[Rfam]
RNA: Eukaryotic small subunit ribosomal RNA, nucleotides 1 to 599
Organism: Cucumis melo
RNA sequence: UACCUGGUUGAUCCUGCCAGUAGUCAUAUGCUUGUCUCAAAGAUUAAGCCAUGCAUGUGUAAGUAUGAACUAAUUCAGACUGUGAAACUGCGAAUGGCUCAUUAAAUCAGUUAUAGUUUGUUUGAUGGUAUUUGCUACUCGGAUAACCGUAGUAAUUCUAAAGCUAAUACGUGCAACAAACCCCGACUUCUGGAAGGGAUGCAUUUAUUAGAUAAAAGGUCGACGCGGGCUCUGCCCAUUGCUCUGAUGAUUCAUGAUAACUCGAUGGUCGUGCGACGCAUCAUUCAAAUUUUUGCCUUAUCAACUUUCGAUGGUAAGUAGUGGCCUUCUAUGGUGGUGACGGGUGACGGAGAAUUAGGGUUCGAUUUCGGAGAAGGAGCCUGAGAAAUGGCUACCACAUCCAAGGAAGGCAGCAGGCGCGUAAAUUACCCAAUCCUGACACGGGGAGGUAGUGACAAUAAAUAACAAUAUCGGGCUCUUCGAGUCUGGUAAUUGGAAUGAGUACAAUCUAAAUCCCUUAACGAGGAUCAAUUGGAGGGAAAGUCUGGUGCCAGCAGCCGCGGUAAUUCCAGCUCCAAUAGCGUAUAUUUAAGUUGUUG
Numbered sequence: 001u002a003c004c005u006g007g008u009u010g011a012u013c014c015u016g017c018c019a020g021u022a023g024u025c026a027u028a029u030g031c032u033u034g035u036c037u038c039a040a041a042g043a044u045u046a047a048g049c050c051a052u053g054c055a056u057g058u059g060u061a062a063g064u065a066u067g068a069a070c071u072a073a074u075u076c077a078g079a080c081u082g083u084g085a086a087a088c089u090g091c092g093a094a095u096g097g098c099u100c101a102u103u104a105a106a107u108c109a110g111u112u113a114u115a116g117u118u119u120g121u122u123u124g125a126u127g128g129u130a131u132u133u134g135c136u137a138c139u140c141g142g143a144u145a146a147c148c149g150u151a152g153u154a155a156u157u158c159u160a161a162a163g164c165u166a167a168u169a170c171g172u173g174c175a176a177c178a179a180a181c182c183c184c185g186a187c188u189u190c191u192g193g194a195a196g197g198g199a200u201g202c203a204u205u206u207a208u209u210a211g212a213u214a215a216a217a218g219g220u221c222g223a224c225g226c227g228g229g230c231u232c233u234g235c236c237c238a239u240u241g242c243u244c245u246g247a248u249g250a251u252u253c254a255u256g257a258u259a260a261c262u263c264g265a266u267g268g269u270c271g272u273g274c275g276a277c278g279c280a281u282c283a284u285u286c287a288a289a290u291u292u293u294u295g296c297c298u299u300a301u302c303a304a305c306u307u308u309c310g311a312u313g314g315u316a317a318g319u320a321g322u323g324g325c326c327u328u329c330u331a332u333g334g335u336g337g338u339g340a341c342g343g344g345u346g347a348c349g350g351a352g353a354a355u356u357a358g359g360g361u362u363c364g365a366u367u368u369c370g371g372a373g374a375a376g377g378a379g380c381c382u383g384a385g386a387a388a389u390g391g392c393u394a395c396c397a398c399a400u401c402c403a404a405g406g407a408a409g410g411c412a413g414c415a416g417g418c419g420c421g422u423a424a425a426u427u428a429c430c431c432a433a434u435c436c437u438g439a440c441a442c443g444g445g446g447a448g449g450u451a452g453u454g455a456c457a458a459u460a461a462a463u464a465a466c467a468a469u470a471u472c473g474g475g476c477u478c479u480u481c482g483a484g485u486c487u488g489g490u491a492a493u494u495g496g497a498a499u500g501a502g503u504a505c506a507a508u509c510u511a512a513a514u515c516c517c518u519u520a521a522c523g524a525g526g527a528u529c530a531a532u533u534g535g536a537g538g539g540a541a542a543g544u545c546u547g548g549u550g551c552c553a554g555c556a557g558c559c560g561c562g563g564u565a566a567u568u569c570c571a572g573c574u575c576c577a578a579u580a581g582c583g584u585a586u587a588u589u590u591a592a593g594u595u596g597u598u599g
Stems, first nucleotide, its partner, number of pairs: 004020005022589003026586007035460001037458001041453001042420001048418003052415003057091002062089003069083002098373003108295003113290002117288002123283004138173001140171002147163001150160003180200001182198003187193002205260006219248004227236002269276002297344003304335003311332004316327001318325001348370004352363004376395001378393003398409001400407002426451001428450003434446005466495003469491010502522002504519001506518001532578006545572004554561002